[Rfam]
RNA sequence: CUAGUGAUCUUCACUGGGUGGCAGAUGGCGUGCCAUAACUCUAUUAGUGGGAUACCACGCUCGUGGAUCUUAUGCCCACACAGCCAUCCUCUAGUAAGUUUGCAAGGUGUCUGAUGAGGCGUGGGAACUUAUUGGAAAUAAUUACUUGCUGCGAAGCAUCCUACUGCCAGCGGAUCAACACCUGGUAACAGGUGCCCCUGGGGCCAAAAGCCACGGUUUAACAGACCCUUUAGGAUUGGUUAAAACCUGAGUAAUUAUGGAAGAUACUUAGUACCUACCAACUUGGUAACAGUGCAAACACUAGUUGUAAGGCCCACGAAGGAUGCCCAGAAGGUACCCGCAGGUAACAAGAGACACUGUGGAUCUGAUCUGGGGCCACCUACCUCUAUCCUGGUGAGGUGGUUAAAAAACGUCUAGUGGGCCAAACCCAGGGGGGAUCCCUGGUUUCCUUAUUUUAGUGUAAAUGU
Numbered sequence: 001c002u003a004g005u006g007a008u009c010u011u012c013a014c015u016g017g018g019u020g021g022c023a024g025a026u027g028g029c030g031u032g033c034c035a036u037a038a039c040u041c042u043a044u045u046a047g048u049g050g051g052a053u054a055c056c057a058c059g060c061u062c063g064u065g066g067a068u069c070u071u072a073u074g075c076c077c078a079c080a081c082a083g084c085c086a087u088c089c090u091c092u093a094g095u096a097a098g099u100u101u102g103c104a105a106g107g108u109g110u111c112u113g114a115u116g117a118g119g120c121g122u123g124g125g126a127a128c129u130u131a132u133u134g135g136a137a138a139u140a141a142u143u144a145c146u147u148g149c150u151g152c153g154a155a156g157c158a159u160c161c162u163a164c165u166g167c168c169a170g171c172g173g174a175u176c177a178a179c180a181c182c183u184g185g186u187a188a189c190a191g192g193u194g195c196c197c198c199u200g201g202g203g204c205c206a207a208a209a210g211c212c213a214c215g216g217u218u219u220a221a222c223a224g225a226c227c228c229u230u231u232a233g234g235a236u237u238g239g240u241u242a243a244a245a246c247c248u249g250a251g252u253a254a255u256u257a258u259g260g261a262a263g264a265u266a267c268u269u270a271g272u273a274c275c276u277a278c279c280a281a282c283u284u285g286g287u288a289a290c291a292g293u294g295c296a297a298a299c300a301c302u303a304g305u306u307g308u309a310a311g312g313c314c315c316a317c318g319a320a321g322g323a324u325g326c327c328c329a330g331a332a333g334g335u336a337c338c339c340g341c342a343g344g345u346a347a348c349a350a351g352a353g354a355c356a357c358u359g360u361g362g363a364u365c366u367g368a369u370c371u372g373g374g375g376c377c378a379c380c381u382a383c384c385u386c387u388a389u390c391c392u393g394g395u396g397a398g399g400u401g402g403u404u405a406a407a408a409a410a411c412g413u414c415u416a417g418u419g420g421g422c423c424a425a426a427c428c429c430a431g432g433g434g435g436g437a438u439c440c441c442u443g444g445u446u447u448c449c450u451u452a453u454u455u456u457a458g459u460g461u462a463a464a465u466g467u
Stems, first nucleotide, its partner, number of pairs: 016089006091304005099298003106290001115285004121278003130266002138258010150154001158236006166228001167201004172196002180193005202212003215227004238247003311423005326374004332366004339361005376402006382395002428444004433440002
RNA: Aphthovirus internal ribosome entry site (IRES)